This 431-nucleotide part of an RNA from Salmo salar belongs to the Rfam family "Eukaryotic large subunit ribosomal RNA". The base pairs follow the family's consensus structure, which is taken from published work. Taxonomically the source falls in Salmo (Eukaryota, Deuterostomia, Osteoglossocephalai, Salmoninae). Rfam links the family to the GO terms structural constituent of ribosome and ribosome.
RNA sequence: CGACCUCAGAUCAGACGAGGCAACCCGCUGAAUUUAAGCAUAUUACUAAGCGGAGGAAAAGAAACUAACCAGGAUUCCCUCAGUAGCGGCGAGCGAAGAGGGAAGGGCCCAGCGCCGAAUCCCUGUCCGACGGGCGGGCAUGGGAAAUGUGGCGUAUAGAAGACCGCUUUGCCCGGUGUCGAUCGGGGGCCUGAGUCCUUCUGAUCGAGGCUCAGCCCGUGGACGGUGUGAGGCCGGUAACGGCCCCCGUCGCGCCGGGGUCCGGUCUUCUCGGAGUCGGGUUGCUUGGGAAUGCAGCCCAAAGUGGGUGGUAAACUCCAUCUAAGGCUAAAUACCGGCACGAGUCCGAUAGUCGACAAGUACCGUAAGGGAAAGUUGAAAAGAACUUUGAAGAGAGAGUUCAAGAGGGCGUGAAACCGUUGAGAGGUAAA
Numbered sequence: 001c002g003a004c005c006u007c008a009g010a011u012c013a014g015a016c017g018a019g020g021c022a023a024c025c026c027g028c029u030g031a032a033u034u035u036a037a038g039c040a041u042a043u044u045a046c047u048a049a050g051c052g053g054a055g056g057a058a059a060a061g062a063a064a065c066u067a068a069c070c071a072g073g074a075u076u077c078c079c080u081c082a083g084u085a086g087c088g089g090c091g092a093g094c095g096a097a098g099a100g101g102g103a104a105g106g107g108c109c110c111a112g113c114g115c116c117g118a119a120u121c122c123c124u125g126u127c128c129g130a131c132g133g134g135c136g137g138g139c140a141u142g143g144g145a146a147a148u149g150u151g152g153c154g155u156a157u158a159g160a161a162g163a164c165c166g167c168u169u170u171g172c173c174c175g176g177u178g179u180c181g182a183u184c185g186g187g188g189g190c191c192u193g194a195g196u197c198c199u200u201c202u203g204a205u206c207g208a209g210g211c212u213c214a215g216c217c218c219g220u221g222g223a224c225g226g227u228g229u230g231a232g233g234c235c236g237g238u239a240a241c242g243g244c245c246c247c248c249g250u251c252g253c254g255c256c257g258g259g260g261u262c263c264g265g266u267c268u269u270c271u272c273g274g275a276g277u278c279g280g281g282u283u284g285c286u287u288g289g290g291a292a293u294g295c296a297g298c299c300c301a302a303a304g305u306g307g308g309u310g311g312u313a314a315a316c317u318c319c320a321u322c323u324a325a326g327g328c329u330a331a332a333u334a335c336c337g338g339c340a341c342g343a344g345u346c347c348g349a350u351a352g353u354c355g356a357c358a359a360g361u362a363c364c365g366u367a368a369g370g371g372a373a374a375g376u377u378g379a380a381a382a383g384a385a386c387u388u389u390g391a392a393g394a395g396a397g398a399g400u401u402c403a404a405g406a407g408g409g410c411g412u413g414a415a416a417c418c419g420u421u422g423a424g425a426g427g428u429a430a431a
Stems, first nucleotide, its partner, number of pairs: 024055001025053005035042002065072002076103005086094002106329004113154005119148001120145004124140005159270002162267004173258007185248007195211001197210004218222001225235002279300007306323005363370002386397004